[Rfam]
RNA: Small Cajal body specific RNA 11
Organism: Cynara cardunculus
Nucleotides: 155
Base pairs, nucleotide, nucleotide: 002059003058004057005056006055007054008053011051018043019042020041022039023038024037025036026035027034072150073149074148075147076146077145079143080142081141082140085137086136087135088134089133090132091131092130093129094128095127096126097125098124099123100122101121102120103119104118
Number, partner (000 for none) and nucleotide at each position: 001000u002059u003058g004057c005056c006055a007054a008053u009000u010000c011051c012000c013000u014000c015000g016000c017000u018043g019042a020041u021000c022039c023038c024037u025036c026035g027034c028000a029000g030000a031000u032000c033000a034027g035026c036025g037024a038023g039022g040000g041020a042019u043018c044000a045000g046000c047000g048000a049000g050000g051011g052000a053008a054007u055006u056005g057004g058003c059002a060000u061000a062000a063000a064000g065000c066000a067000u068000u069000u070000u071000c072150c073149c074148u075147c076146g077145u078000a079143g080142a081141u082140c083000a084000g085137c086136g087135a088134g089133g090132g091131a092130u093129u094128a095127g096126c097125g098124a099123g100122g101121g102120a103119a104118u105000u106000u107000g108000a109000u110000u111000u112000u113000u114000g115000c116000a117000u118104a119103u120102u121101c122100c123099c124098u125097c126096g127095c128094u129093g130092a131091u132090c133089c134088c135087u136086c137085g138000c139000a140082g141081a142080u143079c144000a145077g146076c147075g148074a149073g150072g151000g152000a153000a154000u155000u